Rfam assigns this 50-nucleotide RNA from Vibrio metschnikovii to the family "malK-II RNA". It is annotated as a cis-regulatory element.
RNA sequence: AUUCCUACUGUUAUUGCCUGCAAGAUAAUUCAUAUAAUGAUAGGCAGUAA
Numbered sequence: 001a002u003u004c005c006u007a008c009u010g011u012u013a014u015u016g017c018c019u020g021c022a023a024g025a026u027a028a029u030u031c032a033u034a035u036a037a038u039g040a041u042a043g044g045c046a047g048u049a050a
Base pairs, nucleotide, nucleotide: 011050012049013048014047015046016045017044018043